[Rfam]
RNA sequence: GUCCAAAAUGCAGUAAUGUUGUCUUUUCCAAACACACAUCUGAUUGCUCUGUGUGAAAAAUGACUGUUGCUGCGUGAUUUUGGAU
Dot-bracket structure: ((((((.((.(..............................................................)..)).))))))
Numbered sequence: 001g002u003c004c005a006a007a008a009u010g011c012a013g014u015a016a017u018g019u020u021g022u023c024u025u026u027u028c029c030a031a032a033c034a035c036a037c038a039u040c041u042g043a044u045u046g047c048u049c050u051g052u053g054u055g056a057a058a059a060a061u062g063a064c065u066g067u068u069g070c071u072g073c074g075u076g077a078u079u080u081u082g083g084a085u
Stems, first nucleotide, its partner, number of pairs: 001085006008078002011074001
Annotation:
Small nucleolar RNA SNORD121A: an 85-nucleotide RNA from Accipiter nisus. The family's consensus secondary structure was predicted with WAR. Lineage of the source: Eukaryota > Metazoa > Vertebrata > Sauria > Accipiter.